[Rfam]
RNA sequence: UCAGUUACAAUCUAGCAUCUGGGGCACACACAACGAGUAUCUGAUUACUCUUUUUACAACGCCCCGGGAAGGUCUGAGAUAUGGUCAAAGCUCCCUUGUUGCUGUAACAACAUACAAAAGCCGAGAGGUGAUUGUGUGUCGCGGAGCUUCAUUUUCUAGCCGGAAACUUGUGUAAUCACAAGGCGAAAGUACCAGAAAUGCUGCAGUAUGGCUGUUGCCGCACCGCUUGCCGUUUGCCGCCGGCCAUGUUGCAUUGAAAACUUUCGUGACCAGCAAUUUAAGUGCGAUGUGCUUGCUGCAAACCUUGCCUGAGGUGCGCAGAACUCAAUUCAGACUAAUCUGUGACUGA
Numbered sequence: 001u002c003a004g005u006u007a008c009a010a011u012c013u014a015g016c017a018u019c020u021g022g023g024g025c026a027c028a029c030a031c032a033a034c035g036a037g038u039a040u041c042u043g044a045u046u047a048c049u050c051u052u053u054u055u056a057c058a059a060c061g062c063c064c065c066g067g068g069a070a071g072g073u074c075u076g077a078g079a080u081a082u083g084g085u086c087a088a089a090g091c092u093c094c095c096u097u098g099u100u101g102c103u104g105u106a107a108c109a110a111c112a113u114a115c116a117a118a119a120g121c122c123g124a125g126a127g128g129u130g131a132u133u134g135u136g137u138g139u140c141g142c143g144g145a146g147c148u149u150c151a152u153u154u155u156c157u158a159g160c161c162g163g164a165a166a167c168u169u170g171u172g173u174a175a176u177c178a179c180a181a182g183g184c185g186a187a188a189g190u191a192c193c194a195g196a197a198a199u200g201c202u203g204c205a206g207u208a209u210g211g212c213u214g215u216u217g218c219c220g221c222a223c224c225g226c227u228u229g230c231c232g233u234u235u236g237c238c239g240c241c242g243g244c245c246a247u248g249u250u251g252c253a254u255u256g257a258a259a260a261c262u263u264u265c266g267u268g269a270c271c272a273g274c275a276a277u278u279u280a281a282g283u284g285c286g287a288u289g290u291g292c293u294u295g296c297u298g299c300a301a302a303c304c305u306u307g308c309c310u311g312a313g314g315u316g317c318g319c320a321g322a323a324c325u326c327a328a329u330u331c332a333g334a335c336u337a338a339u340c341u342g343u344g345a346c347u348g349a
Stems, first nucleotide, its partner, number of pairs: 001349004007343003012295001014293005021065005035050005074333005083271004152166005167182006183267007203252003296321004302315004
Shown here is a 349-nucleotide sequence from Drosophila virilis, a member of the family "Nuclear RNase P". Rfam 15.1 lists 3,848 matches to the family in 1,862 species. About the family: Ribonuclease P (RNase P) is a ubiquitous endoribonuclease, found in archaea, bacteria and eukarya as well as chloroplasts and mitochondria. Its best characterised activity is the generation of mature 5'-ends of tRNAs by cleaving the 5'-leader elements of precursor-tRNAs. Cellular RNase Ps are ribonucleoproteins. RNA from bacterial RNase Ps retains its catalytic activity in the absence of the protein subunit, i.e. it is a ribozyme. Lineage of the source: Eukaryota > Ecdysozoa > Endopterygota > Drosophila > Drosophila. It is annotated as a ribozyme.